[Rfam]
RNA sequence: GGUAGUAGGCCUACCACAGUCGCUAUGCAAGUGGAGGCUGUAAACCGCCUCUCGGUGCUUGUUUAGUAAUGAACGGGUAUUGAACGGAAAUAGGAAAAGGCUGCGUUGGAGCAGUCUGAU
Dot-bracket structure: (((((.....)))))((((((.((((....)))).))))))......(((.((((.(((.((((......)))).))).)).....)).)..))....((((((......))))))....
Numbered sequence: 001g002g003u004a005g006u007a008g009g010c011c012u013a014c015c016a017c018a019g020u021c022g023c024u025a026u027g028c029a030a031g032u033g034g035a036g037g038c039u040g041u042a043a044a045c046c047g048c049c050u051c052u053c054g055g056u057g058c059u060u061g062u063u064u065a066g067u068a069a070u071g072a073a074c075g076g077g078u079a080u081u082g083a084a085c086g087g088a089a090a091u092a093g094g095a096a097a098a099g100g101c102u103g104c105g106u107u108g109g110a111g112c113a114g115u116c117u118g119a120u
Stems, first nucleotide, its partner, number of pairs: 001015005016041006023034004048094002050090001052088002054081002057078003061074004099116006